[Rfam]
RNA sequence: CGGGCGGGCCGGGCCCCUCUGGCACCCCAUCAAUUGGGUGUGAUGUCGGACCGCGUUU
Numbered sequence: 001c002g003g004g005c006g007g008g009c010c011g012g013g014c015c016c017c018u019c020u021g022g023c024a025c026c027c028c029a030u031c032a033a034u035u036g037g038g039u040g041u042g043a044u045g046u047c048g049g050a051c052c053g054c055g056u057u058u
Stems, first nucleotide, its partner, number of pairs: 006052002009049004022041006029034001
Dot-bracket structure: .....((.((((.........((((((.(....).))))))....)))).))......
The record is a 58-nucleotide RNA from Sphingomonas sp. OV641, which matches "terC RNA" in Rfam. It is annotated as a cis-regulatory element. The base pairs follow the family's consensus structure, which is taken from published work. NCBI's taxonomy places the organism under Bacteria, Pseudomonadati, Alphaproteobacteria, Sphingomonadales, Sphingomonas.